[Rfam]
RNA: mraW RNA
Organism: Aquarana catesbeiana
RNA sequence: GAGUCACCCGGUGACCCCGCCCCCCUCUGACGCACGGUGACUUGACGGGACUUCCCCUGUGACGUCACAAGGAAUGCCACAGGGAAGUCCUGUCAUGUCCCGUGCGUCAGAGGGGGACGGGGUCACCGGGUGGCCCCGCC
Number, nucleotide and partner (000 for none) at each position: 001g000002a000003g000004u000005c000006a000007c000008c000009c000010g127011g126012u125013g124014a123015c122016c121017c000018c119019g118020c000021c116022c115023c114024c113025c112026u111027c110028u109029g108030a107031c106032g105033c104034a103035c102036g101037g100038u000039g099040a098041c097042u000043u095044g094045a093046c092047g091048g090049g089050a088051c087052u086053u085054c084055c083056c082057c000058u000059g000060u000061g000062a000063c000064g000065u000066c000067a000068c000069a000070a000071g000072g000073a000074a000075u000076g000077c000078c000079a000080c000081a000082g056083g055084g054085a053086a052087g051088u050089c049090c048091u047092g046093u045094c044095a043096u000097g041098u040099c039100c037101c036102g035103u034104g033105c032106g031107u030108c029109a028110g027111a026112g025113g024114g023115g022116g021117a000118c019119g018120g000121g016122g015123u014124c013125a012126c011127c010128g000129g000130g000131u000132g000133g000134c000135c000136c000137c000138g000139c000140c000